[Rfam]
RNA: mir-72 microRNA precursor family
RNA sequence: GCUAGGCAAGAUGUUGGCAUAGCUGAGAUUAGUUCGUUGUUUUGAUGUUUCAGCCACGCCACAUGCUGCCAAGCU
Numbered sequence: 001g002c003u004a005g006g007c008a009a010g011a012u013g014u015u016g017g018c019a020u021a022g023c024u025g026a027g028a029u030u031a032g033u034u035c036g037u038u039g040u041u042u043u044g045a046u047g048u049u050u051c052a053g054c055c056a057c058g059c060c061a062c063a064u065g066c067u068g069c070c071a072a073g074c075u
Base pairs, nucleotide, nucleotide: 005070006069007068011064012063013062014061016060017059018058022054023053024052025051026050027049028048